[Rfam]
RNA sequence: GUCUUGUCAAUGAUGUCUUCAAACACAAAUGUCUGAACAAAUGACUCUCUGUGAUUCAUUCUUCUUUACUGAGACAAGGC
Numbered sequence: 001g002u003c004u005u006g007u008c009a010a011u012g013a014u015g016u017c018u019u020c021a022a023a024c025a026c027a028a029a030u031g032u033c034u035g036a037a038c039a040a041a042u043g044a045c046u047c048u049c050u051g052u053g054a055u056u057c058a059u060u061c062u063u064c065u066u067u068a069c070u071g072a073g074a075c076a077a078g079g080c
Base pairs, nucleotide, nucleotide: 002079003078004077005076006075007074008073
Dot-bracket structure: .(((((((................................................................))))))).